[Rfam]
RNA: BsrG
RNA sequence: UAACUAAAACCUAAUAAGCAAGGUGGCGGCGAAACUCCCUUACGGAAGGGGGUGAUGCUUUGACGAUAUAUGAAUCAUUAAGCUUAGUGGCAUUAUUUGGACAAGUUCUCAUUGCGCUACUAGUGUUAAUUGUAUCAAUUGUCGUCUUUAUAAAUAAAAAGAAAUAGCCACCCUGCCGGCAAGUAAGGUGGCUAUUUCUAUAUUAAGAAAGGUUUGACACCGCUUCUAUUGCAAAUUUUAGUUACAUUGACUGAGCGUAGCUGCGUUCAGU
Numbered sequence: 001u002a003a004c005u006a007a008a009a010c011c012u013a014a015u016a017a018g019c020a021a022g023g024u025g026g027c028g029g030c031g032a033a034a035c036u037c038c039c040u041u042a043c044g045g046a047a048g049g050g051g052g053u054g055a056u057g058c059u060u061u062g063a064c065g066a067u068a069u070a071u072g073a074a075u076c077a078u079u080a081a082g083c084u085u086a087g088u089g090g091c092a093u094u095a096u097u098u099g100g101a102c103a104a105g106u107u108c109u110c111a112u113u114g115c116g117c118u119a120c121u122a123g124u125g126u127u128a129a130u131u132g133u134a135u136c137a138a139u140u141g142u143c144g145u146c147u148u149u150a151u152a153a154a155u156a157a158a159a160a161g162a163a164a165u166a167g168c169c170a171c172c173c174u175g176c177c178g179g180c181a182a183g184u185a186a187g188g189u190g191g192c193u194a195u196u197u198c199u200a201u202a203u204u205a206a207g208a209a210a211g212g213u214u215u216g217a218c219a220c221c222g223c224u225u226c227u228a229u230u231g232c233a234a235a236u237u238u239u240a241g242u243u244a245c246a247u248u249g250a251c252u253g254a255g256c257g258u259a260g261c262u263g264c265g266u267u268c269a270g271u
Base pairs, nucleotide, nucleotide: 001244002243003242004241005240007238008237009236012217016215017214019175020174022172023171024170025169026168033053035052036051037050038049039048062146063145064144065143066142067141068140075090076089077088184205185204186203221231222230250271251270252269253268254267255266256265257264258263